[Rfam]
RNA: Bacillus-plasmid RNA
Organism: Weissella halotolerans
RNA sequence: UCCGUCAACGGUAAAUCGACGUAGAACGGCUUUUAGCCGUUCUGGGAGGCUUUAAGGAGUUGACGGACUCACUAGG
Numbered sequence: 001u002c003c004g005u006c007a008a009c010g011g012u013a014a015a016u017c018g019a020c021g022u023a024g025a026a027c028g029g030c031u032u033u034u035a036g037c038c039g040u041u042c043u044g045g046g047a048g049g050c051u052u053u054a055a056g057g058a059g060u061u062g063a064c065g066g067a068c069u070c071a072c073u074a075g076g
Base pairs, nucleotide, nucleotide: 001067002066003065004064005063006062007061008060009059